[Rfam]
RNA sequence: CGAUGAAGGAAGCAUGGUAAUGUACACGUAAAUAGAUGGUCUCCAUGUCUGCCAGCCUUGAUGCUUUUGGGUUUUGAUUUGGUUGGCCUGGAAUUGACCUAUAUGU
Dot-bracket structure: ...........(.((......)).)............((((.....(((.(((................)))...)))......))))..................
Numbered sequence: 001c002g003a004u005g006a007a008g009g010a011a012g013c014a015u016g017g018u019a020a021u022g023u024a025c026a027c028g029u030a031a032a033u034a035g036a037u038g039g040u041c042u043c044c045a046u047g048u049c050u051g052c053c054a055g056c057c058u059u060g061a062u063g064c065u066u067u068u069g070g071g072u073u074u075u076g077a078u079u080u081g082g083u084u085g086g087c088c089u090g091g092a093a094u095u096g097a098c099c100u101a102u103a104u105g106u
Stems, first nucleotide, its partner, number of pairs: 012025001014023002038088004047078003051072003
Small nucleolar RNA snoR100: a 106-nucleotide RNA from Zostera marina.
On this family, see Marker et al., Curr Biol 2002: "Experimental RNomics: identification of 140 candidates for small non-messenger RNAs in the plant Arabidopsis thaliana".
The family has 9 seed sequences and 1,851 matches in Rfam 15.1.
Pairs were carried over by alignment from the consensus structure, which was predicted with WAR.
The source organism's lineage runs through Eukaryota, Viridiplantae, Tracheophyta, Mesangiospermae and Zostera.
Gene Ontology terms of the family: nucleolus and RNA processing.